[Rfam]
This 109-nucleotide RNA sequence from Amycolatopsis sp. M39 belongs to the Rfam family "mraW RNA". It is annotated as a cis-regulatory element. The family has 45 seed sequences and 851 matches in Rfam 15.1. Taxonomically the source falls in Amycolatopsis (Bacteria, Actinomycetota, Actinomycetes, Pseudonocardiales). Pairs were carried over by alignment from the consensus structure, which is taken from published work.

RNA sequence: CGACGCGGAUGCCGUGAGGCCUCUGUCCGCUCUUUGACCCUGGCGCACCUUCCCCGGUGCCAGGUCAGCAAGCGGGCGGGCAGGGACCUGACGGCAUCCGCCGCAUCUU
Numbered sequence: 001c002g003a004c005g006c007g008g009a010u011g012c013c014g015u016g017a018g019g020c021c022u023c024u025g026u027c028c029g030c031u032c033u034u035u036g037a038c039c040c041u042g043g044c045g046c047a048c049c050u051u052c053c054c055c056g057g058u059g060c061c062a063g064g065u066c067a068g069c070a071a072g073c074g075g076g077c078g079g080g081c082a083g084g085g086a087c088c089u090g091a092c093g094g095c096a097u098c099c100g101c102c103g104c105a106u107c108u109u
Base pairs, nucleotide, nucleotide: 010096011095012094013093014092015091018088019087021085022084023083024082025081026080027079028078029077030076031075032074035068039064040063041062042061043060044059045058046057